[Rfam]
RNA sequence: CACCGGCGUUUGAUCGCGCCGAGGGUCUGAUGACCGGCCUGUCCCCCGCCGCGUCAGACUUGGACAAAGGCCUUAUCCCCCUCUCCGGGCCUUUGUCCCCAAUUCGAGCCGCCAUGGUCACACCUCCAGACCAUGGCGGCUUUUA
Numbered sequence: 001c002a003c004c005g006g007c008g009u010u011u012g013a014u015c016g017c018g019c020c021g022a023g024g025g026u027c028u029g030a031u032g033a034c035c036g037g038c039c040u041g042u043c044c045c046c047c048g049c050c051g052c053g054u055c056a057g058a059c060u061u062g063g064a065c066a067a068a069g070g071c072c073u074u075a076u077c078c079c080c081c082u083c084u085c086c087g088g089g090c091c092u093u094u095g096u097c098c099c100c101a102a103u104u105c106g107a108g109c110c111g112c113c114a115u116g117g118u119c120a121c122a123c124c125u126c127c128a129g130a131c132c133a134u135g136g137c138g139g140c141u142u143u144u145a
Base pairs, nucleotide, nucleotide: 026058027057028056029055030054031053032052036050037049038048062098063097064096065095066094067093068092069091070090071089072088107141109139110138111137112136113135114134115133116132117131118130119129

The family of this 145-nucleotide sequence from Rhizobium sp. BK376 is "Alphaproteobacterial sRNA ar7".
The organism belongs to Rhizobium, within Bacteria.
The literature on the family includes a 2012 paper in RNA Biol by del Val et al., "A survey of sRNA families in alpha-proteobacteria".
By type it is a small RNA.